The record is a 75-nucleotide RNA from Capsicum annuum, which matches "Plastid-ycf2 5UTR RNA" in Rfam. The organism belongs to Capsicum, within Eukaryota. A reference for the family is Richter et al. (2023), "Retrograde signaling in plants: A critical review focusing on the GUN pathway and beyond", Plant Commun. Plastid ycf2 is a non-coding RNA (ncRNA) recognised in plastids. It was found in the prime untranslated region (5UTR) of ycf2 genes, it presents a tRNA-like motif which suggests it can be involved in mRNA maturation, particularly involved in defining the precise 5' end of the transcript.
RNA sequence: GUGCAUACAGUAGGAAUUGAACUUACAAAUUCACCAAUUAUGGGUUGGGCACUUUAGCUAUUCAGCCAUGGAUGC
Numbered sequence: 001g002u003g004c005a006u007a008c009a010g011u012a013g014g015a016a017u018u019g020a021a022c023u024u025a026c027a028a029a030u031u032c033a034c035c036a037a038u039u040a041u042g043g044g045u046u047g048g049g050c051a052c053u054u055u056a057g058c059u060a061u062u063c064a065g066c067c068a069u070g071g072a073u074g075c
Stems, first nucleotide, its partner, number of pairs: 003075004008070001010026005040069003044066006051059001